RNA sequence: GUUCCCUCUCUCGAAUCCUUGCUCCCUGGGUGAGUGUGCUCUCAGAAUGCAACGUACCUAGGCAAGGAUUCCAGAGGGGGAGC
Numbered sequence: 001g002u003u004c005c006c007u008c009u010c011u012c013g014a015a016u017c018c019u020u021g022c023u024c025c026c027u028g029g030g031u032g033a034g035u036g037u038g039c040u041c042u043c044a045g046a047a048u049g050c051a052a053c054g055u056a057c058c059u060a061g062g063c064a065a066g067g068a069u070u071c072c073a074g075a076g077g078g079g080g081a082g083c
Stems, first nucleotide, its partner, number of pairs: 014070007025062008037051003
Shown here is an 83-nucleotide RNA sequence from Erinaceus europaeus, a member of the family "mir-500 microRNA precursor family". Lineage of the source: Eukaryota > Tetrapoda > Amniota > Erinaceidae > Erinaceus. Rfam links the family to the GO terms miRNA-mediated post-transcriptional gene silencing and RISC complex.